[Rfam]
U11 spliceosomal RNA: a 157-nucleotide RNA sequence from Spizellomyces punctatus. The literature on the family includes a 1988 paper in Proc Natl Acad Sci U S A by Montzka and Steitz, "Additional low-abundance human small nuclear ribonucleoproteins: U11, U12, etc". Rfam classes the family as a spliceosomal small nuclear RNA. Its family is annotated with mRNA 5'-splice site recognition, pre-mRNA 5'-splice site binding and U11 snRNP in the Gene Ontology. Taxonomically the source falls in Spizellomyces punctatus (Eukaryota, Fungi, Chytridiomycota, Chytridiomycotina).

RNA sequence: UAAAAGGGUUGCUCCCCUCCAUUGUUGGAAAUGGGACAACGGAAAAGUCUCAAGAGCUUUUACCGUUGCGGUAUGGCUAUCAAGAACAUAUCGGCAGCAUAAUUUUUGGCUUUUUGGGCUGGUAGACUGGGCUCCCUUUUUCCGAGCUGUCGCCAGC
Numbered sequence: 001u002a003a004a005a006g007g008g009u010u011g012c013u014c015c016c017c018u019c020c021a022u023u024g025u026u027g028g029a030a031a032u033g034g035g036a037c038a039a040c041g042g043a044a045a046a047g048u049c050u051c052a053a054g055a056g057c058u059u060u061u062a063c064c065g066u067u068g069c070g071g072u073a074u075g076g077c078u079a080u081c082a083a084g085a086a087c088a089u090a091u092c093g094g095c096a097g098c099a100u101a102a103u104u105u106u107u108g109g110c111u112u113u114u115u116g117g118g119c120u121g122g123u124a125g126a127c128u129g130g131g132c133u134c135c136c137u138u139u140u141u142c143c144g145a146g147c148u149g150u151c152g153c154c155a156g157c
Stems, first nucleotide, its partner, number of pairs: 008098005013036004037068006044061001045059004069093007117154003121151005127146002130143001